[Rfam]
RNA: TPP riboswitch aptamer (THI element)
RNA sequence: AAACUGACACGCGGGAGCUUGGACCCACCAGGCUGAGAGUGCGCAUGUCGACCGUACGCCACACGAGUGACGGACGUUCGAGGGGGCGCUGACCGCCGGAACCUGUCCGGGUAAUGCCGGCGUAGGGAGUAUCGGCCAUGCCGCC
Numbered sequence: 001a002a003a004c005u006g007a008c009a010c011g012c013g014g015g016a017g018c019u020u021g022g023a024c025c026c027a028c029c030a031g032g033c034u035g036a037g038a039g040u041g042c043g044c045a046u047g048u049c050g051a052c053c054g055u056a057c058g059c060c061a062c063a064c065g066a067g068u069g070a071c072g073g074a075c076g077u078u079c080g081a082g083g084g085g086g087c088g089c090u091g092a093c094c095g096c097c098g099g100a101a102c103c104u105g106u107c108c109g110g111g112u113a114a115u116g117c118c119g120g121c122g123u124a125g126g127g128a129g130u131a132u133c134g135g136c137c138a139u140g141c142c143g144c145c
Base pairs, nucleotide, nucleotide: 006133007132009130010129011096012095013094014093016090017033018032019031020030021029041089042088043087044086102126103125104124105123107120108119109118110117